Shown here is a 109-nucleotide RNA sequence from Aestuariivirga litoralis, a member of the family "Rhizobiales sRNA Atu_At1". The family's consensus secondary structure was predicted with CMfinder. For this family Rfam cites "Deep sequencing uncovers numerous small RNAs on all four replicons of the plant pathogen Agrobacterium tumefaciens" (Wilms et al., RNA Biol, 2012).

RNA sequence: GCGAUCCACGUGUCAACCAGACGCGAUGGCACCGGGGAAUGCGGAUGGUUUUUCUGGUUUCCCGCCGCAGCCGACGAAAUGGCAGCCGAGCUCCUGUCCCAUCCGUGGA
Numbered sequence: 001g002c003g004a005u006c007c008a009c010g011u012g013u014c015a016a017c018c019a020g021a022c023g024c025g026a027u028g029g030c031a032c033c034g035g036g037g038a039a040u041g042c043g044g045a046u047g048g049u050u051u052u053u054c055u056g057g058u059u060u061c062c063c064g065c066c067g068c069a070g071c072c073g074a075c076g077a078a079a080u081g082g083c084a085g086c087c088g089a090g091c092u093c094c095u096g097u098c099c100c101a102u103c104c105g106u107g108g109a
Base pairs, nucleotide, nucleotide: 006108007107008106009105011023012022013021014020025103026102027101028100029099034094035093036092037091040069041068042067043066044065047063070083071082072081

It is annotated as a small RNA. The source organism's lineage runs through Bacteria, Pseudomonadati, Alphaproteobacteria, Hyphomicrobiales and Aestuariivirga. The match comes from Rfam's covariance-model search (88 bits).